[Rfam]
RNA: Ribosomal protein L19 leader
Organism: Bacillus sp. DNRA2
RNA sequence: ACGAUGUUCCGCUGCAUCAUUUAGAAGGAGUGCAAGAGCAUCUG
Numbered sequence: 001a002c003g004a005u006g007u008u009c010c011g012c013u014g015c016a017u018c019a020u021u022u023a024g025a026a027g028g029a030g031u032g033c034a035a036g037a038g039c040a041u042c043u044g
Base pairs, nucleotide, nucleotide: 003042004041005040006039007038008037009036013034014033017029018028